[Rfam]
RNA sequence: UUCGUUGAAACGCUGAAUCUUGGCACGAACAAGAGCGGGGGGAACCGACCGGAGCCGCAAUCGGCUCCAAGGGGUGAAUCGCCGGGCACGCAUCCGUGCCGGCGUAGGGCGACUCUCGCGCCCGAAUCCGACAGCUAACCUCGCAAGCGUAUGGGAGAGGCAAC
Numbered sequence: 001u002u003c004g005u006u007g008a009a010a011c012g013c014u015g016a017a018u019c020u021u022g023g024c025a026c027g028a029a030c031a032a033g034a035g036c037g038g039g040g041g042g043a044a045c046c047g048a049c050c051g052g053a054g055c056c057g058c059a060a061u062c063g064g065c066u067c068c069a070a071g072g073g074g075u076g077a078a079u080c081g082c083c084g085g086g087c088a089c090g091c092a093u094c095c096g097u098g099c100c101g102g103c104g105u106a107g108g109g110c111g112a113c114u115c116u117c118g119c120g121c122c123c124g125a126a127u128c129c130g131a132c133a134g135c136u137a138a139c140c141u142c143g144c145a146a147g148c149g150u151a152u153g154g155g156a157g158a159g160g161c162a163a164c
Stems, first nucleotide, its partner, number of pairs: 011149004018034005035144006046071001072129003080104006107123004